[Rfam]
RNA sequence: GGAUUGUGAAAUUAGUAAUUUGUUGGUCUUGUUAAUUGUGUUGAACCACAUUGAUGGCCAUCCUUAUAUAUUACUACCCAUAAUCUGAAUCC
Numbered sequence: 001g002g003a004u005u006g007u008g009a010a011a012u013u014a015g016u017a018a019u020u021u022g023u024u025g026g027u028c029u030u031g032u033u034a035a036u037u038g039u040g041u042u043g044a045a046c047c048a049c050a051u052u053g054a055u056g057g058c059c060a061u062c063c064u065u066a067u068a069u070a071u072u073a074c075u076a077c078c079c080a081u082a083a084u085c086u087g088a089a090u091c092c
Base pairs, nucleotide, nucleotide: 001092002091003090004089044052045051